[Rfam]
RNA: BsrG
Nucleotides: 233
Stems, first nucleotide, its partner, number of pairs: 001205005007199001008196001009141001010139006017131004024046002027043005057108001059106005071084001094100001151166001184195004211233009
Number, partner (000 for none) and nucleotide at each position: 001205c002204a003203g004202a005201u006000u007199g008196u009141c010139u011138a012137g013136g014135a015134g016000u017131g018130g019129u020128u021000a022000g023000c024046c025045a026000u027043u028042c029041c030040c031039u032000u033000g034000u035000a036000g037000a038000a039031a040030g041029g042028g043027g044000g045025u046024g047000g048000u049000a050000u051000g052000a053000u054000g055000a056000u057108a058000u059106c060105a061104a062103u063102g064000u065000u066000u067000g068000a069000a070000g071084c072000a073000a074000u075000g076000u077000a078000u079000c080000u081000c082000a083000c084071g085000a086000u087000a088000g089000c090000a091000u092000u093000c094100g095000c096000a097000a098000c099000u100094c101000u102063c103062g104061u105060u106059g107000u108057u109000u110000u111000g112000a113000u114000c115000a116000u117000a118000a119000a120000u121000a122000g123000g124000a125000a126000a127000u128020a129019a130018c131017c132000g133000c134015u135014u136013c137012c138011u139010a140000a141009g142000c143000u144000a145000a146000g147000g148000u149000c150000u151166g152000c153000g154000g155000u156000u157000a158000u159000u160000u161000c162000u163000u164000a165000a166151u167000a168000a169000c170000u171000c172000c173000u174000a175000c176000u177000u178000u179000a180000g181000g182000c183000u184195a185194a186193c187192c188000c189000u190000u191000c192187g193186g194185u195184u196008a197000g198000a199007c200000a201005a202004u203003c204002u205001g206000c207000a208000g209000g210000g211233c212232u213231g214230g215229c216228g217227u218226g219225u220000g221000u222000c223000g224000a225219g226218c227217a228216c229215g230214u231213c232212a233211g